[Rfam]
RNA sequence: GCACGCGGAACUUUCACGCAUUCAGUUGCAAGGGAGAGGGGGAUGGGCCCCCUCUGGUUGCGUCGUGCGGAAGG
Numbered sequence: 001g002c003a004c005g006c007g008g009a010a011c012u013u014u015c016a017c018g019c020a021u022u023c024a025g026u027u028g029c030a031a032g033g034g035a036g037a038g039g040g041g042g043a044u045g046g047g048c049c050c051c052c053u054c055u056g057g058u059u060g061c062g063u064c065g066u067g068c069g070g071a072a073g074g
Stems, first nucleotide, its partner, number of pairs: 001068005006062002009059004014033002018029003035055008